The record is a 510-nucleotide RNA sequence from Kitasatospora setae, which matches "Saccharopolyspora sRNA 350" in Rfam.
The family has 2 seed sequences and 1,170 matches in Rfam 15.1.
Lineage of the source: Bacteria > Actinomycetota > Kitasatosporales > Kitasatospora > Kitasatospora setae.
Its family is annotated with regulation of secondary metabolite biosynthetic process in the Gene Ontology.
For this family Rfam cites "Prediction and characterization of small non-coding RNAs related to secondary metabolites in Saccharopolyspora erythraea" (Liu et al., PLoS One, 2013).

RNA sequence: UUCACGCUGUAGGGCCAGCGGCGGUCGGCGACGGUGAGCGCCUCGUCGCCGAUGUGGUCGCCGUCCGCGAAGGUGCCGAGCACGGUCGGGUCGCCGUACUUGCCGGUGCCGAUCUUGUCGACCUUGCCGUGCGCGACCAGGAACACCUCGUCGAUCUCGGCGCCCUGCUCGAUCAGCACGUCGCCGACGGCGAAGUCGCGCUGGACGAAGCGGCCGGCCAGCUCGGCCAGCAGCGCGUCGUCCUCGAACCCGCGCAGCACCGGGACCUCGCGCAGCGUCGGCGGGACGACGCUGACCUGGCGACCGGUCUGCGCGAAGCUCACCCGGCCCCGGCCGACCGCGUACGAGAGGCGCCGGUUGACCCGGUAGGUGCCGCCCGAGACCUCGACCCAGGGCAGCGCGCGGAGCAGCCAGCGAUUGCUGAUCUCCUGCAUCUGCGGGGCCGACUUGGUGGUCGACGCGAGGUUCUUGGCGGCCGCCACCGAGAGGCUGCUCUGCUGCCUCGCUUGG
Numbered sequence: 001u002u003c004a005c006g007c008u009g010u011a012g013g014g015c016c017a018g019c020g021g022c023g024g025u026c027g028g029c030g031a032c033g034g035u036g037a038g039c040g041c042c043u044c045g046u047c048g049c050c051g052a053u054g055u056g057g058u059c060g061c062c063g064u065c066c067g068c069g070a071a072g073g074u075g076c077c078g079a080g081c082a083c084g085g086u087c088g089g090g091u092c093g094c095c096g097u098a099c100u101u102g103c104c105g106g107u108g109c110c111g112a113u114c115u116u117g118u119c120g121a122c123c124u125u126g127c128c129g130u131g132c133g134c135g136a137c138c139a140g141g142a143a144c145a146c147c148u149c150g151u152c153g154a155u156c157u158c159g160g161c162g163c164c165c166u167g168c169u170c171g172a173u174c175a176g177c178a179c180g181u182c183g184c185c186g187a188c189g190g191c192g193a194a195g196u197c198g199c200g201c202u203g204g205a206c207g208a209a210g211c212g213g214c215c216g217g218c219c220a221g222c223u224c225g226g227c228c229a230g231c232a233g234c235g236c237g238u239c240g241u242c243c244u245c246g247a248a249c250c251c252g253c254g255c256a257g258c259a260c261c262g263g264g265a266c267c268u269c270g271c272g273c274a275g276c277g278u279c280g281g282c283g284g285g286a287c288g289a290c291g292c293u294g295a296c297c298u299g300g301c302g303a304c305c306g307g308u309c310u311g312c313g314c315g316a317a318g319c320u321c322a323c324c325c326g327g328c329c330c331c332g333g334c335c336g337a338c339c340g341c342g343u344a345c346g347a348g349a350g351g352c353g354c355c356g357g358u359u360g361a362c363c364c365g366g367u368a369g370g371u372g373c374c375g376c377c378c379g380a381g382a383c384c385u386c387g388a389c390c391c392a393g394g395g396c397a398g399c400g401c402g403c404g405g406a407g408c409a410g411c412c413a414g415c416g417a418u419u420g421c422u423g424a425u426c427u428c429c430u431g432c433a434u435c436u437g438c439g440g441g442g443c444c445g446a447c448u449u450g451g452u453g454g455u456c457g458a459c460g461c462g463a464g465g466u467u468c469u470u471g472g473c474g475g476c477c478g479c480c481a482c483c484g485a486g487a488g489g490c491u492g493c494u495c496u497g498c499u500g501c502c503u504c505g506c507u508u509g510g
Stems, first nucleotide, its partner, number of pairs: 006390001008388001011385002015381001018328002021325001025322001027320003032315001035313002038310001040308003045304006052298001055232001058229001060227004065111001067109002075103001077102004082097005117222002120219001122217002127212001130209001131206001134203002140197001143196002149192002155189001157187005166175002236294002240290003244286002249283001251281001253280002256278001257276002261270002329342001331340002353377001355375003361371003391431005397425001399423002407415001437479004442473003445468002447465003451461002480509002483505003488502003492498001